About this RNA:
SAM riboswitch aptamer (S box leader): a 99-nucleotide sequence from Ruminococcus sp. CAG:57. Pairs were carried over by alignment from the consensus structure, which is taken from published work.
RNA sequence: GCCUUAUCAAGAGUGGUGGAGGAAACAGGUCCUGUGAAGCCCAGCAACCUAGCGUUAGUUAAGGUGCUAAAUCCUGCGGUUAUUUCCGAAAGAUGAGGA
Numbered sequence: 001g002c003c004u005u006a007u008c009a010a011g012a013g014u015g016g017u018g019g020a021g022g023a024a025a026c027a028g029g030u031c032c033u034g035u036g037a038a039g040c041c042c043a044g045c046a047a048c049c050u051a052g053c054g055u056u057a058g059u060u061a062a063g064g065u066g067c068u069a070a071a072u073c074c075u076g077c078g079g080u081u082a083u084u085u086c087c088g089a090a091a092g093a094u095g096a097g098g099a
Stems, first nucleotide, its partner, number of pairs: 002098007013042001015041003021032003026076004043068004048064002050061004072091001077088003